Shown here is a 157-nucleotide RNA sequence from Streptomyces showdoensis, a member of the family "c-di-AMP riboswitch aptamer (ydaO/yuaA leader)".
RNA sequence: GCACCGCACUCACCCAUACGCACGGCAGGAGCGGGGGACCCACAGGUUCGCCGCCGCCCCGGUCUCCGGGGCGGCUCGGGGUGUAGUCGCGCACCGCGCGGCCGGGCAGCUCCUGCCCGAACCCGACAGCUCACCUCGCAGGCGAAGGAGAGGACAU
Number, nucleotide and partner (000 for none) at each position: 001g000002c144003a000004c142005c141006g000007c000008a000009c000010u029011c028012a000013c000014c000015c000016a000017u000018a000019c000020g000021c000022a000023c000024g000025g000026c000027a000028g011029g010030a000031g139032c138033g137034g136035g135036g134037g000038a000039c000040c000041c078042a000043c000044a000045g000046g000047u000048u000049c000050g000051c000052c000053g000054c000055c000056g000057c000058c000059c000060c000061g000062g000063u000064c000065u000066c000067c000068g000069g000070g000071g000072c000073g000074g000075c000076u000077c000078g041079g124080g123081g122082u000083g000084u000085a000086g000087u101088c100089g099090c098091g000092c000093a000094c000095c000096g000097c000098g090099c089100g088101g087102c000103c000104g118105g117106g116107c115108a000109g000110c000111u000112c000113c000114u000115g107116c106117c105118c104119g000120a000121a000122c081123c080124c079125g000126a000127c000128a000129g000130c000131u000132c000133a000134c036135c035136u034137c033138g032139c031140a000141g005142g004143c000144g002145a000146a000147g000148g000149a000150g000151a000152g000153g000154a000155c000156a000157u000

From the family's description: This family represents a conserved RNA structure found upstream of the ydaO and yuaA genes in Bacillus subtilis and related genes in other bacteria.
The match comes from Rfam's covariance-model search (47 bits).